Notes
Shown here is a 70-nucleotide RNA from Dimorphilus gyrociliatus, a member of the family "mir-33 microRNA precursor family". The family's consensus secondary structure was predicted with PFOLD. A reference for the family is Ahn et al. (2010), "MicroRNA transcriptome in the newborn mouse ovaries determined by massive parallel sequencing", Mol Hum Reprod. Rfam 15.1 lists 1,467 matches to the family in 815 species. Rfam links the family to the GO terms RISC complex and gene silencing by miRNA. Lineage of the source: Eukaryota > Metazoa > Spiralia > Dinophilidae > Dimorphilus.
[Rfam]
RNA sequence: UGAGUGUGCAUUGUAGUUGCAUUGCAUUGUUUGAAAUUAUAGGUGCAAUGUUCCUGCAAUGCGAUGCCCA
Numbered sequence: 001u002g003a004g005u006g007u008g009c010a011u012u013g014u015a016g017u018u019g020c021a022u023u024g025c026a027u028u029g030u031u032u033g034a035a036a037u038u039a040u041a042g043g044u045g046c047a048a049u050g051u052u053c054c055u056g057c058a059a060u061g062c063g064a065u066g067c068c069c070a
Stems, first nucleotide, its partner, number of pairs: 001070002004067001007063010019051001021049007